[Rfam]
RNA sequence: AGUAAAUUUAAUCUUUUCUCUCGUAUAUUAUCAGAAAUAAGGUCCGAAAGUCUCUACCUACUCACCGUAAAUGAGUAGACUACGGGUGGCAAUUGCUAGAUA
Numbered sequence: 001a002g003u004a005a006a007u008u009u010a011a012u013c014u015u016u017u018c019u020c021u022c023g024u025a026u027a028u029u030a031u032c033a034g035a036a037a038u039a040a041g042g043u044c045c046g047a048a049a050g051u052c053u054c055u056a057c058c059u060a061c062u063c064a065c066c067g068u069a070a071a072u073g074a075g076u077a078g079a080c081u082a083c084g085g086g087u088g089g090c091a092a093u094u095g096c097u098a099g100a101u102a
Stems, first nucleotide, its partner, number of pairs: 018088001020086006029049001031047002034044002058078007
Background
Rfam assigns this 102-nucleotide RNA from Turicibacter sp. H121 to the family "Purine riboswitch aptamer". It scores 81 bits against the family's covariance model. The family's consensus secondary structure is taken from published work.